RNA sequence: UUGACGAAAAGGCAAAGCACGGGUAAUCGUGUGACGCAAAGCUACCUGUCCAGAAGCCUGGAAAGAGGGGCCGCCGAA
Numbered sequence: 001u002u003g004a005c006g007a008a009a010a011g012g013c014a015a016a017g018c019a020c021g022g023g024u025a026a027u028c029g030u031g032u033g034a035c036g037c038a039a040a041g042c043u044a045c046c047u048g049u050c051c052a053g054a055a056g057c058c059u060g061g062a063a064a065g066a067g068g069g070g071c072c073g074c075c076g077a078a
Stems, first nucleotide, its partner, number of pairs: 012037002017032006041071003045068003049062005
Background:
The family of this 78-nucleotide RNA from Geotalea daltonii is "c-di-GMP-I riboswitch aptamer". The base pairs follow the family's consensus structure, which is taken from published work. GEMM was predicted in a large-scale screen for bacterial structured RNA regulatory elements. Genes associated with GEMM are involved in a diverse array of functions, including chemotaxis regulation, signal transduction, secretion and chitin.